[Rfam]
RNA sequence: CCCGCCACUUUGCCAGUCUGUAUGUGACUGAGUAUAGUCCAGUGGUGGCUAAGACGGACCCAGCUCUAGGAAACAGGGCUGCCCAAACAAUGAGCUUCUCUGUGCCGAAAGGCCUGGAACAAAU
Numbered sequence: 001c002c003c004g005c006c007a008c009u010u011u012g013c014c015a016g017u018c019u020g021u022a023u024g025u026g027a028c029u030g031a032g033u034a035u036a037g038u039c040c041a042g043u044g045g046u047g048g049c050u051a052a053g054a055c056g057g058a059c060c061c062a063g064c065u066c067u068a069g070g071a072a073a074c075a076g077g078g079c080u081g082c083c084c085a086a087a088c089a090a091u092g093a094g095c096u097u098c099u100c101u102g103u104g105c106c107g108a109a110a111g112g113c114c115u116g117g118a119a120c121a122a123a124u
Stems, first nucleotide, its partner, number of pairs: 005045005018032002020029001021026001060117004064112002067109001069106002074102005082094001084092001